Background
This 73-nucleotide RNA from Prunus armeniaca belongs to the Rfam family "Small nucleolar RNA snoR60". It is annotated as a C/D-box small nucleolar RNA. The organism belongs to Prunus, within Eukaryota. The family's consensus secondary structure was predicted with PFOLD. The family is grouped with related families in Rfam's "SNORD101 clan".
RNA sequence: ACGCAUGUGAUGAGUUAACUCGGAUUCCCCUUCAGGAUGUCAUGUAUGAUGUGAGCUCGAGUUUUCUGAUGCG
Numbered sequence: 001a002c003g004c005a006u007g008u009g010a011u012g013a014g015u016u017a018a019c020u021c022g023g024a025u026u027c028c029c030c031u032u033c034a035g036g037a038u039g040u041c042a043u044g045u046a047u048g049a050u051g052u053g054a055g056c057u058c059g060a061g062u063u064u065u066c067u068g069a070u071g072c073g
Stems, first nucleotide, its partner, number of pairs: 002073004